[Rfam]
RNA sequence: UGGGUGUGAAGAGAGCAGAGCGCCUGAAGAGUGGCUCCUCUGUGUAUAACACAUCCAAAAGCAACUUGGGCUUACUCUUUACAGGUGGCAGGGUACUAUGGCCUUCCUGUAACAUUACGCCCCAUACAU
Numbered sequence: 001u002g003g004g005u006g007u008g009a010a011g012a013g014a015g016c017a018g019a020g021c022g023c024c025u026g027a028a029g030a031g032u033g034g035c036u037c038c039u040c041u042g043u044g045u046a047u048a049a050c051a052c053a054u055c056c057a058a059a060a061g062c063a064a065c066u067u068g069g070g071c072u073u074a075c076u077c078u079u080u081a082c083a084g085g086u087g088g089c090a091g092g093g094u095a096c097u098a099u100g101g102c103c104u105u106c107c108u109g110u111a112a113c114a115u116u117a118c119g120c121c122c123c124a125u126a127c128a129u
Base pairs, nucleotide, nucleotide: 002056003055004054005053006052007051008050013045015043016042017041018040019039020038022035023034024033069122070121072119076114078112081110082109084103085102086101088099090097091096

Small nucleolar RNA SNORA11: a 129-nucleotide RNA from Myotis lucifugus.
On this family, see Gu et al., Nucleic Acids Res 2005: "A novel experimental approach for systematic identification of box H/ACA snoRNAs from eukaryotes".
Lineage of the source: Eukaryota > Eumetazoa > Gnathostomata > Dipnotetrapodomorpha > Myotis.
From the family's description: U107 (SNORA11) is a member of the H/ACA class of snoRNAs that guide the sites of modification of uridines to pseudouridines. This snoRNA was identified by RT-PCR from blood cells and its expression confirmed by Northern blot analysis. There is no predicted target for this guide snRNA.
Pairs were carried over by alignment from the consensus structure, which was predicted with RNAalifold.
A search with the family's covariance model found it, with a score of 64 bits.